[Rfam]
RNA sequence: CGGGCGGAAUCCGAAAAGCCUUGUACAGAGUAGGAG
Numbered sequence: 001c002g003g004g005c006g007g008a009a010u011c012c013g014a015a016a017a018g019c020c021u022u023g024u025a026c027a028g029a030g031u032a033g034g035a036g
Base pairs, nucleotide, nucleotide: 002021003020004019005018010035011034012033